[Rfam]
RNA: Archaeal RNase P
Organism: Salinarchaeum sp. Harcht-Bsk1
RNA sequence: GGUAGAGAGAGCCCGGCUCCCGCGCGUCACAGCCGUGACCGUGAGGAAAGUCCCCCCACCGAUCGGGCGGGCGACCGGGGGCAACCCCGGGGCGGGAGACCGCCGGCGCUGGAACAGACACGACACGUCUCCGCGCGACCGAUGAGGUGCGCGCCUCCGAAGCGAGCAAGUCGCGGUGCGUCCGUGGGGUGACCCGCGGGCGGCCGUCGGCGAUUCAAGCGACGGACUGCUGACCCACCGAGGGGCGACCGCGGAGGACCGAUGGAACGGCGAACCCUCGCCGGUGCAAGUCGACGGCCCGAUGGUAGCCCGAUCUCCCGCGAGGGCGGUCGUCGACGCCGAGCCGAAUGCCGGACGAACAGAAGGGGGCUUACUCCUCUCUGCC
Numbered sequence: 001g002g003u004a005g006a007g008a009g010a011g012c013c014c015g016g017c018u019c020c021c022g023c024g025c026g027u028c029a030c031a032g033c034c035g036u037g038a039c040c041g042u043g044a045g046g047a048a049a050g051u052c053c054c055c056c057c058a059c060c061g062a063u064c065g066g067g068c069g070g071g072c073g074a075c076c077g078g079g080g081g082c083a084a085c086c087c088c089g090g091g092g093c094g095g096g097a098g099a100c101c102g103c104c105g106g107c108g109c110u111g112g113a114a115c116a117g118a119c120a121c122g123a124c125a126c127g128u129c130u131c132c133g134c135g136c137g138a139c140c141g142a143u144g145a146g147g148u149g150c151g152c153g154c155c156u157c158c159g160a161a162g163c164g165a166g167c168a169a170g171u172c173g174c175g176g177u178g179c180g181u182c183c184g185u186g187g188g189g190u191g192a193c194c195c196g197c198g199g200g201c202g203g204c205c206g207u208c209g210g211c212g213a214u215u216c217a218a219g220c221g222a223c224g225g226a227c228u229g230c231u232g233a234c235c236c237a238c239c240g241a242g243g244g245g246c247g248a249c250c251g252c253g254g255a256g257g258a259c260c261g262a263u264g265g266a267a268c269g270g271c272g273a274a275c276c277c278u279c280g281c282c283g284g285u286g287c288a289a290g291u292c293g294a295c296g297g298c299c300c301g302a303u304g305g306u307a308g309c310c311c312g313a314u315c316u317c318c319c320g321c322g323a324g325g326g327c328g329g330u331c332g333u334c335g336a337c338g339c340c341g342a343g344c345c346g347a348a349u350g351c352c353g354g355a356c357g358a359a360c361a362g363a364a365g366g367g368g369g370c371u372u373a374c375u376c377c378u379c380u381c382u383g384c385c
Stems, first nucleotide, its partner, number of pairs: 001385003005381005010375002013354005021043004048372003052369005057286004062314006070282005075090005091104005105277002110273001112271001126261002129256007290337009